The family of this 108-nucleotide sequence from Plutella xylostella is "mir-8517 microRNA precursor family". The organism belongs to Plutella, within Eukaryota. Its family is annotated with miRNA-mediated post-transcriptional gene silencing and RISC complex in the Gene Ontology. A search with the family's covariance model found it, with a score of 78 bits.
RNA sequence: UUAUAGGACGUUUUAGCUAUUGAACUGCUUUGUCCCUCUCUGUCAAAGAACAAUUUGUUCUGAGUUAGAGAGGGACAACAUAGUUCUAUAGCUUAAACGUCCUAUAUU
Number, nucleotide and partner (000 for none) at each position: 001u000002u106003a105004u104005a103006g102007g000008a000009c000010g000011u097012u096013u095014u000015a093016g092017c091018u090019a089020u088021u000022g086023a085024a084025c083026u082027g081028c000029u069030u068031u067032g066033u000034c064035c000036c000037u000038c000039u000040c000041u000042g000043u000044c000045a000046a000047a000048g000049a059050a058051c057052a056053a000054u000055u000056u052057g051058u050059u049060c000061u000062g000063a000064g034065u000066u032067a031068g030069a029070g000071a000072g000073g000074g000075a000076c000077a000078a000079c000080a000081u027082a026083g025084u024085u023086c022087u000088a020089u019090a018091g017092c016093u015094u000095a013096a012097a011098c000099g000100u000101c000102c006103u005104a004105u003106a002107u000108u000